The record is a 60-nucleotide RNA sequence from Nocardioides flavescens, which matches "msiK RNA" in Rfam. It is annotated as a cis-regulatory element. The family's consensus secondary structure is taken from published work. Lineage of the source: Bacteria > Actinomycetes > Propionibacteriales > Nocardioidaceae > Nocardioides.
[Rfam]
RNA sequence: GGUCCAGGUCACUUCACAACGGAUCGUCCGGCACGUACCUGCCGGUGGAGGGAGCACAUC
Numbered sequence: 001g002g003u004c005c006a007g008g009u010c011a012c013u014u015c016a017c018a019a020c021g022g023a024u025c026g027u028c029c030g031g032c033a034c035g036u037a038c039c040u041g042c043c044g045g046u047g048g049a050g051g052g053a054g055c056a057c058a059u060c
Base pairs, nucleotide, nucleotide: 010052012050013049014048015047016046028045029044030043031042032041033040
Dot-bracket structure: .........(.(((((...........((((((......))))))))))).)........